This 84-nucleotide RNA from Streptomyces sp. M41(2017) belongs to the Rfam family "nrdJ RNA". It scores 61 bits against the family's covariance model. Lineage of the source: Bacteria > Bacillati > Actinomycetes > Streptomycetaceae > Streptomyces. The base pairs follow the family's consensus structure, which is taken from published work. Rfam classes the family as a small RNA.

RNA sequence: ACCUGCUGCGACCAGCCGUGCUCUGCGGCACGCGGCACCAGAAACACAUCGCGCCACGGGAAGAACGUGGCCUUUCAGGGCGUU
Numbered sequence: 001a002c003c004u005g006c007u008g009c010g011a012c013c014a015g016c017c018g019u020g021c022u023c024u025g026c027g028g029c030a031c032g033c034g035g036c037a038c039c040a041g042a043a044a045c046a047c048a049u050c051g052c053g054c055c056a057c058g059g060g061a062a063g064a065a066c067g068u069g070g071c072c073u074u075u076c077a078g079g080g081c082g083u084u
Base pairs, nucleotide, nucleotide: 004037005036006035007034008033009032010031015029016028017027018026019025051073053071054070055069056068057067058066